Rfam assigns this 130-nucleotide sequence from Cnephaeus nilssonii to the family "Small nucleolar RNA SNORA33". Pairs were carried over by alignment from the consensus structure, which was predicted with PFOLD. About the family: ACA33 is a member of the H/ACA class of snoRNA that guide the sites of modification of uridines to pseudouridines. A search with the family's covariance model found it, with a score of 87 bits.

RNA sequence: AUGGUGUAAAUUACUCUUUAUUAUCUGAAUGCGUUCCUGCAGAAAUUUAGAGAAAGAUGACAAUAGUAAAGCCAUGUUACAAGCCUUAAAGACACUGAAGGCAUGAAGGUCCUUGAAAAUGGCUAUAAGG
Numbered sequence: 001a002u003g004g005u006g007u008a009a010a011u012u013a014c015u016c017u018u019u020a021u022u023a024u025c026u027g028a029a030u031g032c033g034u035u036c037c038u039g040c041a042g043a044a045a046u047u048u049a050g051a052g053a054a055a056g057a058u059g060a061c062a063a064u065a066g067u068a069a070a071g072c073c074a075u076g077u078u079a080c081a082a083g084c085c086u087u088a089a090a091g092a093c094a095c096u097g098a099a100g101g102c103a104u105g106a107a108g109g110u111c112c113u114u115g116a117a118a119a120u121g122g123c124u125a126u127a128a129g130g
Base pairs, nucleotide, nucleotide: 003061005059006058007057015043016042017041019039071123072122073121074120083110084109085108086107087106089104091102093100